[Rfam]
RNA sequence: UCCCUGAUAGUCCAGUGGUUAGGACUCAGCACUUUCACUGCAGGGGCCUGGGUUCAACCCCCAGUCAGGGAC
Numbered sequence: 001u002c003c004c005u006g007a008u009a010g011u012c013c014a015g016u017g018g019u020u021a022g023g024a025c026u027c028a029g030c031a032c033u034u035u036c037a038c039u040g041c042a043g044g045g046g047c048c049u050g051g052g053u054u055c056a057a058c059c060c061c062c063a064g065u066c067a068g069g070g071a072c
Base pairs, nucleotide, nucleotide: 001071002070003069004068005067006066007065010025011024012023013022027043029041030040031039048064049063050062051061052060